[Rfam]
RNA sequence: UUAAGUUACAGAUAGUAAUAACUAUACUGAGUACAUGAGAGGAAUCGAUUAUAGUAAUUAAGCGUAAUCUAAGUACGCCGACCUCUAUGGGCCACCCGGAAGGGUGGUUUUUUUACUAU
Numbered sequence: 001u002u003a004a005g006u007u008a009c010a011g012a013u014a015g016u017a018a019u020a021a022c023u024a025u026a027c028u029g030a031g032u033a034c035a036u037g038a039g040a041g042g043a044a045u046c047g048a049u050u051a052u053a054g055u056a057a058u059u060a061a062g063c064g065u066a067a068u069c070u071a072a073g074u075a076c077g078c079c080g081a082c083c084u085c086u087a088u089g090g091g092c093c094a095c096c097c098g099g100a101a102g103g104g105u106g107g108u109u110u111u112u113u114u115a116c117u118a119u
Stems, first nucleotide, its partner, number of pairs: 007031001009029003012025005034089003038086003045081003048058003062078005090109008